[Rfam]
RNA sequence: AUUAGUUUGCGGGGGAACCAUUUUGGUUGAGAAGGUAAAACCUGACCCUUAGAACCUGAUGUAGUUAAUACUACCGUAGGGAAGCAAAUGUUUGUUAUUA
Numbered sequence: 001a002u003u004a005g006u007u008u009g010c011g012g013g014g015g016a017a018c019c020a021u022u023u024u025g026g027u028u029g030a031g032a033a034g035g036u037a038a039a040a041c042c043u044g045a046c047c048c049u050u051a052g053a054a055c056c057u058g059a060u061g062u063a064g065u066u067a068a069u070a071c072u073a074c075c076g077u078a079g080g081g082a083a084g085c086a087a088a089u090g091u092u093u094g095u096u097a098u099u100a
Stems, first nucleotide, its partner, number of pairs: 006088005011049004016043001017027004034042003055080004061074004
The family of this 100-nucleotide RNA from Thermoanaerobacterium thermosaccharolyticum is "TPP riboswitch aptamer (THI element)". Pairs were carried over by alignment from the consensus structure, which is taken from published work. It scores 77 bits against the family's covariance model.